Rfam assigns this 84-nucleotide RNA sequence from Lentivirus humimdef1 to the family "HIV gag stem loop 3 (GSL3)".
By type it is a cis-regulatory element.
Gene Ontology term of the family: viral RNA genome packaging.
It is one of the family's seed sequences.
The source organism's lineage runs through Viruses, Riboviria, Revtraviricetes, Lentivirus and Lentivirus humimdef1.
The base pairs follow the family's consensus structure, which was predicted with PFOLD.
About the family: This family consists of several HIV gag stem loop 3 (GSL3) sequences. GSL3 is known to direct specific packaging of HIV-1 genomic RNA. Deletion of GSL3 leads to decreases in both viral RNA packaging and dimerisation.
RNA sequence: GGCCAGGGGGAAAGAAACGAUAUAAAUUGAAACAUCUAGUAUGGGCAAGCAGGGAGCUGGAAAGAUUUGCACUUAACCCCAGCC
Numbered sequence: 001g002g003c004c005a006g007g008g009g010g011a012a013a014g015a016a017a018c019g020a021u022a023u024a025a026a027u028u029g030a031a032a033c034a035u036c037u038a039g040u041a042u043g044g045g046c047a048a049g050c051a052g053g054g055a056g057c058u059g060g061a062a063a064g065a066u067u068u069g070c071a072c073u074u075a076a077c078c079c080c081a082g083c084c
Base pairs, nucleotide, nucleotide: 001084002083003082006079007078008077